[Rfam]
RNA sequence: GGCACAAACUCGGAGUAGAGUAGUUUAGUAGGGUCAUAUGAUCCUUCUAAUCUGCUCUACUCAAAAUUUGGGUCC
Numbered sequence: 001g002g003c004a005c006a007a008a009c010u011c012g013g014a015g016u017a018g019a020g021u022a023g024u025u026u027a028g029u030a031g032g033g034u035c036a037u038a039u040g041a042u043c044c045u046u047c048u049a050a051u052c053u054g055c056u057c058u059a060c061u062c063a064a065a066a067u068u069u070g071g072g073u074c075c
Base pairs, nucleotide, nucleotide: 001074002073003072005070006069007068008067013062014061015060016059017058018057019056020055021054022053023052025050026049027048028047030045032043033042034041035040

Record summary: Shown here is a 75-nucleotide RNA sequence from Haemonchus placei, a member of the family "mir-5928 microRNA precursor family". Rfam links the family to the GO terms RISC complex and miRNA-mediated post-transcriptional gene silencing. Pairs were carried over by alignment from the consensus structure, which was predicted with RNAalifold. Lineage of the source: Eukaryota > Protostomia > Chromadorea > Trichostrongylidae > Haemonchus. The match comes from Rfam's covariance-model search (62 bits).